[Rfam]
RNA sequence: ACUUUACAGGGUCGUAUUAUCGCGUAUAAUUUCGACCUUAACUUGCGCGAGCAAGCUGAUGGUGCUUAGCCUAUCUAAGCCCCAUCCAAGACCGUAGGUGGAUAGCUUGCUAUUCUUAAUAACAAGCCUACGUAGAUGGUGAACAGACAGAAUUAUCUGCUUCUGGACACCUUAGCCUCAAGAAGAUGCCGUAUAAGCGGUAAUAUUUUUGGGAUUUUUUGUAAAUUCUGCUCACGAAAGUGGCAGAGUGUAUCAGGAGCUAAAACCA
Dot-bracket structure: ..((((.(((((((.(((((.....)))))..)))))))..(((((....)))))..(((((.((((((.....)))))).)))))......(((((((((((((....))))))..........))))))).....((((..((((((((....))))..))))..)))).....((((((((.(.(((.(....).)))..).)))))))).(((((.(((.(((((((...........))))))).))).))))).))))....
Numbered sequence: 001a002c003u004u005u006a007c008a009g010g011g012u013c014g015u016a017u018u019a020u021c022g023c024g025u026a027u028a029a030u031u032u033c034g035a036c037c038u039u040a041a042c043u044u045g046c047g048c049g050a051g052c053a054a055g056c057u058g059a060u061g062g063u064g065c066u067u068a069g070c071c072u073a074u075c076u077a078a079g080c081c082c083c084a085u086c087c088a089a090g091a092c093c094g095u096a097g098g099u100g101g102a103u104a105g106c107u108u109g110c111u112a113u114u115c116u117u118a119a120u121a122a123c124a125a126g127c128c129u130a131c132g133u134a135g136a137u138g139g140u141g142a143a144c145a146g147a148c149a150g151a152a153u154u155a156u157c158u159g160c161u162u163c164u165g166g167a168c169a170c171c172u173u174a175g176c177c178u179c180a181a182g183a184a185g186a187u188g189c190c191g192u193a194u195a196a197g198c199g200g201u202a203a204u205a206u207u208u209u210u211g212g213g214a215u216u217u218u219u220u221g222u223a224a225a226u227u228c229u230g231c232u233c234a235c236g237a238a239a240g241u242g243g244c245a246g247a248g249u250g251u252a253u254c255a256g257g258a259g260c261u262a263a264a265a266c267c268a
Stems, first nucleotide, its partner, number of pairs: 003264004008039007016030005042055005058086005064080006093132007100115006138171004144165004148159004177213008186204001188201003192197001215259005221253003225249007